[Rfam]
RNA sequence: UCCUCCUGGCAAUGGGCAAAGAGACACCUUGCUGGUGGUGCUCUUCUCUCAGUCAGGGGCAGAGCAGAUGGCGGUCCUUUGUUCAUCCUAGCUUGAUGCCUGGCUUGGUGGCCAAAGCUGUCUUAUGUCUAGGACUCAUAA
Numbered sequence: 001u002c003c004u005c006c007u008g009g010c011a012a013u014g015g016g017c018a019a020a021g022a023g024a025c026a027c028c029u030u031g032c033u034g035g036u037g038g039u040g041c042u043c044u045u046c047u048c049u050c051a052g053u054c055a056g057g058g059g060c061a062g063a064g065c066a067g068a069u070g071g072c073g074g075u076c077c078u079u080u081g082u083u084c085a086u087c088c089u090a091g092c093u094u095g096a097u098g099c100c101u102g103g104c105u106u107g108g109u110g111g112c113c114a115a116a117g118c119u120g121u122c123u124u125a126u127g128u129c130u131a132g133g134a135c136u137c138a139u140a141a
Stems, first nucleotide, its partner, number of pairs: 001061001003059006013051003020047002023042001025040004081135004095129003101125003106120002109117001
This 141-nucleotide RNA sequence from Rattus norvegicus belongs to the Rfam family "Small nucleolar RNA SNORA48". Gene Ontology terms of the family: nucleolus and RNA processing. From the family's description: The snoRNA ACA 48 has been identified to guide pseudouridylation of the residue U3797 in the 28S rRNA subunit. A search with the family's covariance model found it, with a score of 69 bits. The base pairs follow the family's consensus structure, which was predicted with RNAalifold. Its Rfam clan is "SNORA48 clan".